[Rfam]
Nucleotides: 093
Base pairs, nucleotide, nucleotide: 012037013036017032018031019030020029021028022027041087042086043085044084046083047082048081049078050077051076056072057071058070059069060068061067
Number, partner (000 for none) and nucleotide at each position: 001000c002000c003000a004000c005000g006000g007000g008000u009000u010000a011000g012037g013036c014000a015000a016000a017032c018031c019030u020029g021028g022027c023000g024000a025000a026000a027022g028021c029020c030019a031018g032017g033000g034000g035000c036013g037012c038000u039000a040000a041087a042086g043085c044084u045000a046083u047082g048081g049078g050077u051076c052000u053000a054000a055000g056072g057071c058070u059069u060068u061067a062000a063000c064000a065000a066000a067061u068060a069059a070058a071057g072056c073000u074000a075000c076051g077050a078049u079000u080000g081048c082047c083046a084044g085043g086042c087041u088000a089000u090000a091000a092000c093000g
A member of the RNA family "c-di-GMP-I riboswitch aptamer" from Desulfoscipio geothermicus, 93 nucleotides long.
A search with the family's covariance model found it, with a score of 62 bits.